Shown here is a 105-nucleotide RNA sequence from Corchorus capsularis, a member of the family "mir-399 microRNA precursor family". Rfam's curators write: mir-399 was identified in both Arabidopsis thaliana and Oryza sativa computationally and was later experimentally verified. mir-399 is thought to target mRNAs coding for a phosphatase transporter. The mature sequence is excised from the 3' arm of the hairpin. NCBI's taxonomy places the organism under Eukaryota, Tracheophyta, eudicotyledons, Malvales, Corchorus. Rfam 15.1 lists 2,396 matches to the family in 221 species. The base pairs follow the family's consensus structure, which was predicted with PFOLD.
[Rfam]
RNA sequence: GUUUCAAUUACAGGGCAAAAUCUCCACUGGCAGGCAGCCACUUUGAAUAUUUAUUGUUAUCAUAGUGAGCCCUCUGCCAAUGGAGAUUUGCCCGGCAAUUCCACU
Numbered sequence: 001g002u003u004u005c006a007a008u009u010a011c012a013g014g015g016c017a018a019a020a021u022c023u024c025c026a027c028u029g030g031c032a033g034g035c036a037g038c039c040a041c042u043u044u045g046a047a048u049a050u051u052u053a054u055u056g057u058u059a060u061c062a063u064a065g066u067g068a069g070c071c072c073u074c075u076g077c078c079a080a081u082g083g084a085g086a087u088u089u090g091c092c093c094g095g096c097a098a099u100u101c102c103a104c105u
Stems, first nucleotide, its partner, number of pairs: 006100004011095001013093007022085004028079007